[Rfam]
RNA sequence: UCUGGUCCUCGGUAGUGGCAUCCGGAGCUCUCGAGCUCCGAGCGCCUCGAUCGAAGACCGUC
Numbered sequence: 001u002c003u004g005g006u007c008c009u010c011g012g013u014a015g016u017g018g019c020a021u022c023c024g025g026a027g028c029u030c031u032c033g034a035g036c037u038c039c040g041a042g043c044g045c046c047u048c049g050a051u052c053g054a055a056g057a058c059c060g061u062c
Stems, first nucleotide, its partner, number of pairs: 003060005009054005017046003021042001023040007
Dot-bracket structure: ..(((((.(((((...(((.(.(((((((....))))))).).)))...))))).)))))..

A member of the RNA family "Actino-pnp RNA" from Cellulomonas sp. WB94, 62 nucleotides long.
The family's consensus secondary structure is taken from published work.
A search with the family's covariance model found it, with a score of 58 bits.
It is annotated as a cis-regulatory element.
The organism belongs to Cellulomonas, within Bacteria.